[Rfam]
RNA sequence: UAACACGCGUGGCUAGGUGGUACUUUUGUAUCGCCGGAUGGUGAUGAGUAGUCAUCGGUUAAGCCGGAGGGGGUGCUACAGAUUGCCACGGUCUUAUCUCCCUCCGGUUUUGCUAA
Numbered sequence: 001u002a003a004c005a006c007g008c009g010u011g012g013c014u015a016g017g018u019g020g021u022a023c024u025u026u027u028g029u030a031u032c033g034c035c036g037g038a039u040g041g042u043g044a045u046g047a048g049u050a051g052u053c054a055u056c057g058g059u060u061a062a063g064c065c066g067g068a069g070g071g072g073g074u075g076c077u078a079c080a081g082a083u084u085g086c087c088a089c090g091g092u093c094u095u096a097u098c099u100c101c102c103u104c105c106g107g108u109u110u111u112g113c114u115a116a
Base pairs, nucleotide, nucleotide: 009089010088011087012086013085017034018033019032020031021030022029042054043053044052045051055116057114058113059112061110064107065106066105067104068103069102070101071100072099073098080094081093082092083091